This 103-nucleotide sequence from Microbulbifer thermotolerans belongs to the Rfam family "Guanidine-I riboswitch aptamer".
[Rfam]
RNA sequence: AAAAUGGAGCGCUAGGGUUCCGGCUGUUUUAUAACGGUGACUGGUCCGAGAGCACUCGACCUUUCAGUGAAAGGUUACACGGCGGGAUAAAAGCCCGGGAGGA
Numbered sequence: 001a002a003a004a005u006g007g008a009g010c011g012c013u014a015g016g017g018u019u020c021c022g023g024c025u026g027u028u029u030u031a032u033a034a035c036g037g038u039g040a041c042u043g044g045u046c047c048g049a050g051a052g053c054a055c056u057c058g059a060c061c062u063u064u065c066a067g068u069g070a071a072a073g074g075u076u077a078c079a080c081g082g083c084g085g086g087a088u089a090a091a092a093g094c095c096c097g098g099g100a101g102g103a
Stems, first nucleotide, its partner, number of pairs: 007057003011053002015047002020044002022041001023038006058076008078098001080101001084096003
The organism belongs to Microbulbifer, within Bacteria.
The base pairs follow the family's consensus structure.
This family represents a conserved RNA structure found upstream of the ykkC and yxkD genes in Bacillus subtilis and related genes in other bacteria. The function of this family is unclear although it has been suggested that it may function to switch on efflux pumps and detoxification systems in response to harmful environmental molecules.